[Rfam]
RNA sequence: GCAGAGGGCCGGACGGCCGCGGGAAACCCUCGGGUUUCGUGAGGAAAGUCCGGACUCUACAAAACGACGGUGCCGGGUAAUGCCCGGGCAGAGCGAUCUGACGGAGAGCGCCACAGAAAACAGACCGCCCGCAGCCAUCUGCCUGUCAGAUGAUCCCUGUGGGUAAGGGUGAAACGGUGGGGUAAGAGCCCACCGCACCCCUAGCAACAGGGGUGGCACGGCAAGCCCCACCGGGAGCAAUGCCAAAUAGGACCCCCGCGCGGGAUGUCACGGCGAAAGCCGCGACCACCGCUAGGCAUGUUUUGGCCAAGAGGGGUCGGGUUGGCAGCUGGAGGUGCGCAGCAAUGCGCAUCCUAGACGAAUGGUCGUCGAAGGGGCCUUGGCCCUGGAACAAAAUCCGGCUUACAGGCCCUCUGCGCAA
Dot-bracket structure: ((((((((((((((((((.((.((((((....)))))).))....[[[.[[[[[((((.........((((((((((.....)))))(((((....)))).)((...(((((............((((((((((......................))))))))..)).......((((((.......))))))((((((((......))))))).)..)))..)))))))))))))...((((......((((((.............................................(((....))).)))))).....))))......((((((((....))))))))..........)))))))..........................]]]]]]]].).))))))))))....
The family of this 421-nucleotide sequence from Phaeobacter italicus is "Bacterial RNase P class A". The family's RNA type in Rfam is ribozyme. The family is grouped with related families in Rfam's "RNaseP clan". It scores 295 bits against the family's covariance model.